Nucleotides: 123
Base pairs, nucleotide, nucleotide: 015091016090017089018088020086021085022084023083024082025081026080027079028078029077030076031075032074033073035071036070037069038068041058044057045056046055059065096117097116098115099114100113101112102111103110104109
Number, partner (000 for none) and nucleotide at each position: 001000c002000a003000a004000g005000u006000a007000u008000g009000a010000a011000u012000u013000c014000u015091g016090c017089u018088a019000u020086u021085u022084u023083c024082c025081g026080u027079u028078u029077c030076u031075u032074c033073u034000u035071u036070u037069a038068c039000u040000u041058u042000a043000g044057c045056u046055c047000c048000u049000g050000a051000u052000a053000u054000c055046g056045a057044g058041a059065g060000g061000c062000u063000u064000g065059c066000g067000c068038g069037u070036a071035a072000g073033a074032g075031a076030a077029g078028a079027a080026a081025c082024g083023g084022a085021a086020a087000c088018u089017a090016g091015c092000g093000c094000c095000a096117a097116a098115a099114g100113c101112c102111u103110c104109c105000u106000g107000a108000u109104g110103g111102a112101g113100g114099c115098u116097u117096u118000u119000u120000u121000g122000u123000u